[Rfam]
The family of this 161-nucleotide RNA from Sanguibacter sp. HDW7 is "c-di-AMP riboswitch aptamer (ydaO/yuaA leader)". The match comes from Rfam's covariance-model search (49 bits). Pairs were carried over by alignment from the consensus structure. Rfam 15.1 lists 7,607 matches to the family in 2,262 species.
RNA sequence: AACGGCUCAUCCAGACCCCACGGCAGCGACGGGGGACCCACCUUCGGCCACACGCACCACGUGGCCUCGGGGUGAAGCCGCCGGACGUCGAGAACGUCCAGCGGCCGGGCAGAACCUCAGCCCGAACCCGACAGCUCACCUCGCAGGCGUCGAGAGGUUCA
Number, nucleotide and partner (000 for none) at each position: 001a000002a000003c028004g027005g000006c000007u000008c000009a000010u000011c000012c000013a000014g000015a000016c000017c000018c000019c000020a000021c000022g000023g000024c000025a000026g000027c004028g003029a000030c143031g142032g141033g140034g139035g000036a000037c000038c000039c069040a000041c000042c000043u000044u000045c000046g000047g000048c000049c000050a000051c000052a000053c000054g000055c000056a000057c000058c000059a000060c000061g000062u000063g000064g000065c000066c000067u000068c000069g039070g129071g128072g127073u000074g000075a000076a000077g000078c104079c103080g102081c101082c000083g000084g000085a000086c000087g000088u000089c000090g000091a000092g000093a000094a000095c000096g000097u000098c000099c000100a000101g081102c080103g079104g078105c000106c000107g123108g122109g121110c120111a000112g000113a000114a000115c000116c000117u000118c000119a000120g110121c109122c108123c107124g000125a000126a000127c072128c071129c070130g000131a000132c000133a000134g000135c000136u000137c000138a000139c034140c033141u032142c031143g030144c000145a000146g000147g000148c000149g000150u000151c000152g000153a000154g000155a000156g000157g000158u000159u000160c000161a000